A member of the RNA family "Caenorhabditis snoRNA ceN81" from Caenorhabditis briggsae, 126 nucleotides long. The family has 3 seed sequences and 13 matches in Rfam 15.1. The family's consensus secondary structure was predicted with RNAalifold.
RNA sequence: ACCGAAGAGUAGUCAUUUGUAUAUGUUUCUUAUAUGUACAGAGUUACACUCUUCGAAUAUCAGUGCUUCUUCUCGUUGGAGUUGUUUGAUUUAUGAGCAAUUACCUCUAUUCUGAAAGCAACAAUU
Numbered sequence: 001a002c003c004g005a006a007g008a009g010u011a012g013u014c015a016u017u018u019g020u021a022u023a024u025g026u027u028u029c030u031u032a033u034a035u036g037u038a039c040a041g042a043g044u045u046a047c048a049c050u051c052u053u054c055g056a057a058u059a060u061c062a063g064u065g066c067u068u069c070u071u072c073u074c075g076u077u078g079g080a081g082u083u084g085u086u087u088g089a090u091u092u093a094u095g096a097g098c099a100a101u102u103a104c105c106u107c108u109a110u111u112c113u114g115a116a117a118g119c120a121a122c123a124a125u126u
Base pairs, nucleotide, nucleotide: 003055004054005053006052007051008050009049010048012047013046016042017041018040019039020038021037022036023035025033026032064120065119066118067117068116071115072114077109078108079107080106081105082100083099084098085097086096087095088094